[Rfam]
RNA sequence: AGAGUUUUAUGCGACUGGCGGAAAUAGUGGAAUCAACCACGUGGAGCAUGAAACUGAAUAUACAGCCGACCGCCUGGGCACUUAGU
Numbered sequence: 001a002g003a004g005u006u007u008u009a010u011g012c013g014a015c016u017g018g019c020g021g022a023a024a025u026a027g028u029g030g031a032a033u034c035a036a037c038c039a040c041g042u043g044g045a046g047c048a049u050g051a052a053a054c055u056g057a058a059u060a061u062a063c064a065g066c067c068g069a070c071c072g073c074c075u076g077g078g079c080a081c082u083u084a085g086u
Stems, first nucleotide, its partner, number of pairs: 003055010015043001017074005027040004065079003
RNA: ZMP/ZTP riboswitch aptamer (pfl RNA motif)
Organism: Peptoclostridium litorale